A member of the RNA family "Purine riboswitch aptamer" from Paenibacillus contaminans, 102 nucleotides long. A search with the family's covariance model found it, with a score of 74 bits.

RNA sequence: GAGAAGUAAUGAAUCGCAUCUCGUAUAAAGUCGGGAAUAUGGCCCGAAAGUAUCUACCCAGAAACCAUGAAUUUUUGGACUACGAGUAAGCGAAUGUAUAGG
Numbered sequence: 001g002a003g004a005a006g007u008a009a010u011g012a013a014u015c016g017c018a019u020c021u022c023g024u025a026u027a028a029a030g031u032c033g034g035g036a037a038u039a040u041g042g043c044c045c046g047a048a049a050g051u052a053u054c055u056a057c058c059c060a061g062a063a064a065c066c067a068u069g070a071a072u073u074u075u076u077g078g079a080c081u082a083c084g085a086g087u088a089a090g091c092g093a094a095u096g097u098a099u100a101g102g
Stems, first nucleotide, its partner, number of pairs: 020086006031047005058078007